[Rfam]
RNA: c-di-GMP-I riboswitch aptamer
RNA sequence: UCCCGAUAAAACCAAACCUGUCGCAAGACAGGGACGGAAAGCAACGGAUCUUCGAACCAGAAGAUGGCCGAGCUGCCGAA
Numbered sequence: 001u002c003c004c005g006a007u008a009a010a011a012c013c014a015a016a017c018c019u020g021u022c023g024c025a026a027g028a029c030a031g032g033g034a035c036g037g038a039a040a041g042c043a044a045c046g047g048a049u050c051u052u053c054g055a056a057c058c059a060g061a062a063g064a065u066g067g068c069c070g071a072g073c074u075g076c077c078g079a080a
Base pairs, nucleotide, nucleotide: 012037013036017032018031019030020029021028022027040074041073042072045070046069047068048065049064050063051062052061053060